[Rfam]
RNA sequence: AGAGUGAACAUCAUUGAGUGCAGCGUUGAUGUAAAUUCCGUUUUUCUUUUCUACCGUUGAAUGGAUUAAAACAAUUUAUACCAAUACCAGCGUUGCGCUCAAUUAUGUUUUUC
Numbered sequence: 001a002g003a004g005u006g007a008a009c010a011u012c013a014u015u016g017a018g019u020g021c022a023g024c025g026u027u028g029a030u031g032u033a034a035a036u037u038c039c040g041u042u043u044u045u046c047u048u049u050u051c052u053a054c055c056g057u058u059g060a061a062u063g064g065a066u067u068a069a070a071a072c073a074a075u076u077u078a079u080a081c082c083a084a085u086a087c088c089a090g091c092g093u094u095g096c097g098c099u100c101a102a103u104u105a106u107g108u109u110u111u112u113c
Stems, first nucleotide, its partner, number of pairs: 006110006013103016030086003